A member of the RNA family "mir-1784 microRNA precursor family", 92 nucleotides long. Pairs were carried over by alignment from the consensus structure, which was predicted with RNAalifold. The family has 2 seed sequences and 349 matches in Rfam 15.1.
RNA sequence: UGAUUUCUUGGGGCCCAAUUCUGCUCUUAUUGAAAUCAGUGAGAGUCCUGCCAUUGACUUAAAUGGGAGCAGAAUUGGGACCUAAGAGGACA
Numbered sequence: 001u002g003a004u005u006u007c008u009u010g011g012g013g014c015c016c017a018a019u020u021c022u023g024c025u026c027u028u029a030u031u032g033a034a035a036u037c038a039g040u041g042a043g044a045g046u047c048c049u050g051c052c053a054u055u056g057a058c059u060u061a062a063a064u065g066g067g068a069g070c071a072g073a074a075u076u077g078g079g080a081c082c083u084a085a086g087a088g089g090a091c092a
Stems, first nucleotide, its partner, number of pairs: 005088008014079018036057006